[Rfam]
RNA sequence: UGGGCCGCACGUGACUGGCGCACACAAGGUGGGAUCGACCACCGGGGAGCGAACCGUCCGCACGCCGCGCGCCUGGGCGUACGGG
Numbered sequence: 001u002g003g004g005c006c007g008c009a010c011g012u013g014a015c016u017g018g019c020g021c022a023c024a025c026a027a028g029g030u031g032g033g034a035u036c037g038a039c040c041a042c043c044g045g046g047g048a049g050c051g052a053a054c055c056g057u058c059c060g061c062a063c064g065c066c067g068c069g070c071g072c073c074u075g076g077g078c079g080u081a082c083g084g085g
Stems, first nucleotide, its partner, number of pairs: 003058003007054001010051003015046002017073005029042004062080005
This 85-nucleotide RNA sequence from Thermomonospora cellulosilytica belongs to the Rfam family "ZMP/ZTP riboswitch aptamer (pfl RNA motif)". It scores 54 bits against the family's covariance model. NCBI's taxonomy places the organism under Bacteria, Actinomycetota, Actinomycetes, Thermomonosporaceae, Thermomonospora. The base pairs follow the family's consensus structure, which is taken from published work. Its family is annotated with regulation of purine nucleotide biosynthetic process and one-carbon metabolic process in the Gene Ontology.